[Rfam]
RNA sequence: CAGAGUGAAACAGCAAUGUUGUAUUGGGAUAGUCAGAAGUCAGCAGAGGUCAUAGUAUUAGCUUAGUGUCAAAGCUAAGAAGGAC
Number, nucleotide and partner (000 for none) at each position: 001c026002a000003g000004a000005g024006u023007g022008a000009a020010a019011c018012a017013g000014c000015a000016a000017u012018g011019u010020u009021g000022u007023a006024u005025u000026g001027g000028g000029a000030u000031a000032g000033u000034c000035a000036g000037a000038a000039g000040u047041c046042a000043g000044c000045a000046g041047a040048g000049g085050u084051c083052a000053u000054a000055g000056u000057a000058u078059u077060a076061g075062c074063u073064u000065a000066g000067u000068g000069u000070c000071a000072a000073a063074g062075c061076u060077a059078a058079g000080a000081a000082g000083g051084a050085c049
RNA: Group II catalytic intron D1-D4-1